[Rfam]
RNA sequence: AAGAAAUUAGCUCAACGGUAGAGCAACCGUUUUACACACGGAAGGCUAUGAGUUCGAAUCUCCUAUUUCUUA
Dot-bracket structure: (((((((..((((.......))))..((((.......))))......(.(((.......))).)))))))).
Numbered sequence: 001a002a003g004a005a006a007u008u009a010g011c012u013c014a015a016c017g018g019u020a021g022a023g024c025a026a027c028c029g030u031u032u033u034a035c036a037c038a039c040g041g042a043a044g045g046c047u048a049u050g051a052g053u054u055c056g057a058a059u060c061u062c063c064u065a066u067u068u069c070u071u072a
Stems, first nucleotide, its partner, number of pairs: 001071007010024004027041004048064001050062003